[Rfam]
RNA sequence: UUGUGUUAGGGAUUGAAACGGCAUCCUUUUUAUAGCUGUCAUAAAUAGCAUUUAGUUUUAGAUUAUGAGAUUGCCACAGUUUACAAAAAAGUAAACUUUGCAAAGACAGCUAUAAAAAGAUAAAGUGUAAAGCCCGACUUAAU
Number, nucleotide and partner (000 for none) at each position: 001u000002u000003g000004u000005g000006u000007u000008a000009g135010g134011g133012a000013u131014u130015g000016a000017a000018a126019c125020g000021g000022c000023a121024u120025c119026c000027u000028u000029u116030u115031u114032a113033u112034a111035g110036c109037u108038g107039u106040c105041a000042u000043a000044a000045a000046u000047a000048g000049c000050a000051u000052u000053u000054a000055g000056u000057u000058u000059u000060a000061g000062a000063u000064u000065a000066u000067g000068a000069g000070a000071u000072u000073g000074c000075c000076a000077c000078a000079g000080u000081u000082u000083a000084c000085a000086a000087a000088a000089a000090a000091g000092u000093a000094a000095a000096c000097u000098u000099u000100g000101c000102a000103a000104a000105g040106a039107c038108a037109g036110c035111u034112a033113u032114a031115a030116a029117a000118a000119g025120a024121u023122a000123a000124a000125g019126u018127g000128u000129a000130a014131a013132g000133c011134c010135c009136g000137a000138c000139u000140u000141a000142a000143u000
The record is a 143-nucleotide RNA sequence from Polaribacter glomeratus, which matches "Flavo-1 RNA" in Rfam.
Taxonomically the source falls in Polaribacter (Bacteria, Bacteroidota, Flavobacteriales, Flavobacteriaceae).
Rfam 15.1 lists 7,497 matches to the family in 411 species.